RNA sequence: ACAGGGGAAAGCUGAAAACCUGCGAAAAGAGUAAGCG
Number, nucleotide and partner (000 for none) at each position: 001a000002c022003a021004g020005g019006g000007g000008a000009a000010a000011g036012c035013u034014g000015a000016a000017a000018a000019c005020c004021u003022g002023c000024g000025a000026a000027a000028a000029g000030a000031g000032u000033a000034a013035g012036c011037g000

Rfam assigns this 37-nucleotide RNA from Hufsiella ginkgonis to the family "DUF805b RNA". The match comes from Rfam's covariance-model search (36 bits). The family is grouped with related families in Rfam's "DUF805 clan". The family's consensus secondary structure is taken from published work.